[Rfam]
RNA sequence: UAAAUCGUAAGAGAUAGUCCGGAGGAAGCCGCUAGCAAAUCUGCGAGCUGAUGAACAAAAAUAUCAUACUAGGCGUAGGCUGGAGGCGAGUUGGCACAAGACAACGAAGCCAAGUGAUCUAACGGCCACCGUAAAUGAUGCAGUUGUGCAGAGAAAGUGAAUGCA
Numbered sequence: 001u002a003a004a005u006c007g008u009a010a011g012a013g014a015u016a017g018u019c020c021g022g023a024g025g026a027a028g029c030c031g032c033u034a035g036c037a038a039a040u041c042u043g044c045g046a047g048c049u050g051a052u053g054a055a056c057a058a059a060a061a062u063a064u065c066a067u068a069c070u071a072g073g074c075g076u077a078g079g080c081u082g083g084a085g086g087c088g089a090g091u092u093g094g095c096a097c098a099a100g101a102c103a104a105c106g107a108a109g110c111c112a113a114g115u116g117a118u119c120u121a122a123c124g125g126c127c128a129c130c131g132u133a134a135a136u137g138a139u140g141c142a143g144u145u146g147u148g149c150a151g152a153g154a155a156a157g158u159g160a161a162u163g164c165a
Base pairs, nucleotide, nucleotide: 001016002015005012006011030163031162035158036157040152041151042150043149044148045147046145047144048143049142050141062140063139064138065137066136067135073132074131075130078127079126080125081124082123085111086110087109090105091104092103093102
Shown here is a 165-nucleotide RNA from Pseudoalteromonas sp. NBT06-2, a member of the family "Group II catalytic intron D1-D4-3". Rfam's curators write: Group II introns are found in rRNA, tRNA and mRNA of organelles in fungi, plants and protists, and also in mRNA in bacteria. The literature on the family includes a 2003 paper in Crit Rev Biochem Mol Biol by Lehmann and Schmidt, "Group II introns: structure and catalytic versatility of large natural ribozymes".